[Rfam]
RNA sequence: GUUUUUUACCCAAGUAUCAAGGUACUAGGUGUUUUCAAUGACCAUCCUUUUUUGGUUGUGUCAUGAACCAAUAAUUUUUGGAUCAGCAUUUUCGGGGAAAUCCGGGAAUGCAAA
Numbered sequence: 001g002u003u004u005u006u007u008a009c010c011c012a013a014g015u016a017u018c019a020a021g022g023u024a025c026u027a028g029g030u031g032u033u034u035u036c037a038a039u040g041a042c043c044a045u046c047c048u049u050u051u052u053u054g055g056u057u058g059u060g061u062c063a064u065g066a067a068c069c070a071a072u073a074a075u076u077u078u079u080g081g082a083u084c085a086g087c088a089u090u091u092u093c094g095g096g097g098a099a100a101u102c103c104g105g106g107a108a109u110g111c112a113a114a
Stems, first nucleotide, its partner, number of pairs: 008032001009029002013026005039063004043058002046055002090110001092108001096103002
RNA: SL2 RNA